[Rfam]
RNA sequence: UAGCUAGCAUCCAUUUGGAGCUUGACUGUUUUUUAGAGUAAAAAAUAAAAAUAGUCCGGCAUCGUAAAGAGCUGGAACGGAGG
Number, nucleotide and partner (000 for none) at each position: 001u028002a027003g026004c024005u000006a022007g021008c020009a000010u019011c018012c000013a000014u000015u000016u000017g000018g011019a010020g008021c007022u006023u000024g004025a000026c003027u002028g001029u000030u000031u000032u000033u000034u000035a000036g000037a000038g000039u000040a000041a000042a000043a000044a000045a000046u000047a000048a000049a000050a000051a000052u000053a000054g000055u000056c075057c074058g073059g072060c071061a000062u070063c069064g000065u000066a000067a000068a000069g063070a062071g060072c059073u058074g057075g056076a000077a000078c000079g000080g000081a000082g000083g000
RNA: pan motif